[Rfam]
RNA sequence: CCCCCCGAGACUGCCCGCAGGUAGACCUUCCCGGAGGUAGCCGGUGGGGUAGAGUUACUGAUUGGGUGCCCAGGGACCGAAAGGACCCAGCACCCUUUCAAACUCCGAACCUGCCGGCGCCGUAGAAGGGAGGAGCUAGGGUCGUCGGGAUAAGCUUGACGCCCGAGAGGGAAACAACCCAGAGGUGGGUUAAGGUCCCAAAGUGCCGGCUAAGUGUCAUGGAAAGGGCGUCCAUGGCCUAAGACAGCGGGGAGGUUGGCUUAGAAGCAGCCACCCUUUAAAGAGUGCGUAACAGCUCACCCGCCGAGGUCAUGGGCCCCGAAAAUGGACGGGACUAAGCCGGCCACCGAGACCCACCGCCGCCGAGAGGCGAUGCGGUAGGGGGGCGUGCCGCGGGAUGAGAAGCGUCUGCGUGAGCAGGCGUGGAUCGCGCGGCAUCGCGAAU
Numbered sequence: 001c002c003c004c005c006c007g008a009g010a011c012u013g014c015c016c017g018c019a020g021g022u023a024g025a026c027c028u029u030c031c032c033g034g035a036g037g038u039a040g041c042c043g044g045u046g047g048g049g050u051a052g053a054g055u056u057a058c059u060g061a062u063u064g065g066g067u068g069c070c071c072a073g074g075g076a077c078c079g080a081a082a083g084g085a086c087c088c089a090g091c092a093c094c095c096u097u098u099c100a101a102a103c104u105c106c107g108a109a110c111c112u113g114c115c116g117g118c119g120c121c122g123u124a125g126a127a128g129g130g131a132g133g134a135g136c137u138a139g140g141g142u143c144g145u146c147g148g149g150a151u152a153a154g155c156u157u158g159a160c161g162c163c164c165g166a167g168a169g170g171g172a173a174a175c176a177a178c179c180c181a182g183a184g185g186u187g188g189g190u191u192a193a194g195g196u197c198c199c200a201a202a203g204u205g206c207c208g209g210c211u212a213a214g215u216g217u218c219a220u221g222g223a224a225a226g227g228g229c230g231u232c233c234a235u236g237g238c239c240u241a242a243g244a245c246a247g248c249g250g251g252g253a254g255g256u257u258g259g260c261u262u263a264g265a266a267g268c269a270g271c272c273a274c275c276c277u278u279u280a281a282a283g284a285g286u287g288c289g290u291a292a293c294a295g296c297u298c299a300c301c302c303g304c305c306g307a308g309g310u311c312a313u314g315g316g317c318c319c320c321g322a323a324a325a326u327g328g329a330c331g332g333g334a335c336u337a338a339g340c341c342g343g344c345c346a347c348c349g350a351g352a353c354c355c356a357c358c359g360c361c362g363c364c365g366a367g368a369g370g371c372g373a374u375g376c377g378g379u380a381g382g383g384g385g386g387c388g389u390g391c392c393g394c395g396g397g398a399u400g401a402g403a404a405g406c407g408u409c410u411g412c413g414u415g416a417g418c419a420g421g422c423g424u425g426g427a428u429c430g431c432g433c434g435g436c437a438u439c440g441c442g443a444a445u
Base pairs, nucleotide, nucleotide: 001386002385003384004383005382006381011024012023013022014021015020026135027133028132029131030130031129032128036121037120038119040118041117042116043115044114045113046112047111052106053104054103060099061098064095065094066093067092068091069090073088074087075086077084078083139164140163141162143161144160145159146158147157148156169180170179171178184358185357186356187355188354189353190352194348195347196346203345205344206343207342208341209340210339226320227319228318230317231316232315233314234313235312236311237310238309239308247304248303249302250301251300253277254276255275258272259271260270278282283298287296288295359376360375361372362371363370364369387440389437390436391435392434393433394432395431397429398428405424406423407422408421409420410419411418412417